RNA sequence: UUGUUGAGACGCAGCAAUUGCUUCUUGAUAGUUUCUCCUCUAUUUCUCCUUUGUAGACUUGGCGCGGACAAAUGUCCGCGCAUUUUU
Dot-bracket structure: ..(((((((.(.........).))))))).........(((((.........)))))....((((((((....))))))))......

The family of this 87-nucleotide RNA from Pseudogulbenkiania sp. NH8B is "Neisseria metabolic switch regulator b (RcoF1/NgncR163)".
Rfam 15.1 lists 65 matches to the family in 50 species.
The family's consensus secondary structure was predicted with RNAfold.
It is one of the family's seed sequences.
Rfam describes the family as follows. Sibling sRNA described and independently named in three publications. NgncR163 is N. gonorrhoeae while the others are N. meningitidis RNAs. RcoF1 stands for: RNA regulating colonization factor 1.
Rfam links the family to the GO terms protein binding, tricarboxylic acid cycle and mRNA binding.
The organism belongs to Pseudogulbenkiania, within Bacteria.